[Rfam]
RNA sequence: AGAGGCCCUCUGCGGCCAGGGUGGAAUGUUUGCCUUGUUGCCGCGGUGACGAAGCAAGCGUUCUGCCAGGCCGCUCACGCUGCAUGC
Numbered sequence: 001a002g003a004g005g006c007c008c009u010c011u012g013c014g015g016c017c018a019g020g021g022u023g024g025a026a027u028g029u030u031u032g033c034c035u036u037g038u039u040g041c042c043g044c045g046g047u048g049a050c051g052a053a054g055c056a057a058g059c060g061u062u063c064u065g066c067c068a069g070g071c072c073g074c075u076c077a078c079g080c081u082g083c084a085u086g087c
Stems, first nucleotide, its partner, number of pairs: 005083002012074006020067014037050005
The family of this 87-nucleotide sequence from Myotis davidii is "mir-9195 microRNA precursor family". The family's consensus secondary structure was predicted with RNAalifold. Gene Ontology terms of the family: RISC complex and miRNA-mediated post-transcriptional gene silencing. Rfam 15.1 lists 438 matches to the family in 7 species.